[Rfam]
RNA sequence: AUUGAAUCAAUGAUGUUAUGAAGAAACUGCGUUAUCUAUCUGUAAUUCCAUCAAAGGGUGUUGAGACAGUCAUAACAUUCUGAGAUCCGGU
Numbered sequence: 001a002u003u004g005a006a007u008c009a010a011u012g013a014u015g016u017u018a019u020g021a022a023g024a025a026a027c028u029g030c031g032u033u034a035u036c037u038a039u040c041u042g043u044a045a046u047u048c049c050a051u052c053a054a055a056g057g058g059u060g061u062u063g064a065g066a067c068a069g070u071c072a073u074a075a076c077a078u079u080c081u082g083a084g085a086u087c088c089g090g091u
Stems, first nucleotide, its partner, number of pairs: 001091004006086002

Shown here is a 91-nucleotide RNA sequence from Nyssa sinensis, a member of the family "Small nucleolar RNA snoR27". On this family, see Brown et al., RNA 2001: "Multiple snoRNA gene clusters from Arabidopsis". Pairs were carried over by alignment from the consensus structure, which was predicted with WAR. Its Rfam clan is "snR68 clan". It is annotated as a C/D-box small nucleolar RNA.